[Rfam]
RNA sequence: AAGCAAUGACGAAAGUUAACGCUGGCGGUGAUGGUUGGGUCCAUCACAAUCGUCCGAUUAACUAAAGACGAAGUGUAUAGCGUUCCUGAGCUU
Numbered sequence: 001a002a003g004c005a006a007u008g009a010c011g012a013a014a015g016u017u018a019a020c021g022c023u024g025g026c027g028g029u030g031a032u033g034g035u036u037g038g039g040u041c042c043a044u045c046a047c048a049a050u051c052g053u054c055c056g057a058u059u060a061a062c063u064a065a066a067g068a069c070g071a072a073g074u075g076u077a078u079a080g081c082g083u084u085c086c087u088g089a090g091c092u093u
Stems, first nucleotide, its partner, number of pairs: 001093004